[Rfam]
RNA sequence: AUGCCACUGUGUACUAUGGCUUUUUAUUCCUAUGUGAUGAUGAAAAAUGUUCAUGUAGGAAUAGAAGCCAUUUUACACGUGGCAA
Numbered sequence: 001a002u003g004c005c006a007c008u009g010u011g012u013a014c015u016a017u018g019g020c021u022u023u024u025u026a027u028u029c030c031u032a033u034g035u036g037a038u039g040a041u042g043a044a045a046a047a048u049g050u051u052c053a054u055g056u057a058g059g060a061a062u063a064g065a066a067g068c069c070a071u072u073u074u075a076c077a078c079g080u081g082g083c084a085a
Stems, first nucleotide, its partner, number of pairs: 002084006009078005016071008026062012
RNA: mir-135 microRNA precursor family
Organism: Perca flavescens